[Rfam]
RNA sequence: AAAAAUAACAGAAACAUCACUCGUAUAAUUGUGGGGAUAUGGCCCAAAGUUUCUACGGAGCAACCGUAAAUUGCUUCACUAUGAGUGGAAUUAUGACGUAG
Numbered sequence: 001a002a003a004a005a006u007a008a009c010a011g012a013a014a015c016a017u018c019a020c021u022c023g024u025a026u027a028a029u030u031g032u033g034g035g036g037a038u039a040u041g042g043c044c045c046a047a048a049g050u051u052u053c054u055a056c057g058g059a060g061c062a063a064c065c066g067u068a069a070a071u072u073g074c075u076u077c078a079c080u081a082u083g084a085g086u087g088g089a090a091u092u093a094u095g096a097c098g099u100a101g
Stems, first nucleotide, its partner, number of pairs: 018087008029048002032046004057077007

Source information: A member of the RNA family "Purine riboswitch aptamer" from Fusibacter sp. A1, 101 nucleotides long. Lineage of the source: Bacteria > Bacillota > Clostridia > Fusibacteraceae > Fusibacter.